[Rfam]
Shown here is a 71-nucleotide sequence from Acetobacter orientalis, a member of the family "tRNA". The source organism's lineage runs through Bacteria, Alphaproteobacteria, Acetobacterales, Acetobacteraceae and Acetobacter. Rfam classes the family as a transfer RNA. About the family: Transfer RNA (tRNA) molecules are approximately 80 nucleotides in length.
RNA sequence: GCGGAUGUAGUUCAAUGGUAGAACGGCAGCUUCCCAAGCUGCAUACGGGGGUUCGAUUCCCCUCAUCCGCU
Number, nucleotide and partner (000 for none) at each position: 001g070002c069003g068004g067005a066006u065007g064008u000009a000010g024011u023012u022013c021014a000015a000016u000017g000018g000019u000020a000021g013022a012023a011024c010025g000026g042027c041028a040029g039030c038031u000032u000033c000034c000035c000036a000037a000038g030039c029040u028041g027042c026043a000044u000045a000046c000047g063048g062049g061050g060051g059052u000053u000054c000055g000056a000057u000058u000059c051060c050061c049062c048063u047064c007065a006066u005067c004068c003069g002070c001071u000